[Rfam]
Rfam assigns this 35-nucleotide RNA from Pedobacter chitinilyticus to the family "DUF805b RNA". The source organism's lineage runs through Bacteria, Pseudomonadati, Sphingobacteriia, Sphingobacteriales and Pedobacter.

RNA sequence: AAGGCGAUUGCUGAAAAGCCAUAACAGAGUAGGCA
Numbered sequence: 001a002a003g004g005c006g007a008u009u010g011c012u013g014a015a016a017a018g019c020c021a022u023a024a025c026a027g028a029g030u031a032g033g034c035a
Base pairs, nucleotide, nucleotide: 003020004019005018010034011033012032